[Rfam]
RNA sequence: UCUGAUAAGGGUAAACCCAUCGUAAGGUGGGGACACAAAGCCAACGGGUCCUGGAGCACAGGACGGCCGGGUUGCCGGAG
Numbered sequence: 001u002c003u004g005a006u007a008a009g010g011g012u013a014a015a016c017c018c019a020u021c022g023u024a025a026g027g028u029g030g031g032g033a034c035a036c037a038a039a040g041c042c043a044a045c046g047g048g049u050c051c052u053g054g055a056g057c058a059c060a061g062g063a064c065g066g067c068c069g070g071g072u073u074g075c076c077g078g079a080g
Base pairs, nucleotide, nucleotide: 001080003077004076011036012035016031017030018029019028020027021026034066039073040072041071042070045069046068047067048064049063050062051061052060
RNA: c-di-GMP-I-GGC riboswitch aptamer
Organism: Desulfurivibrio alkaliphilus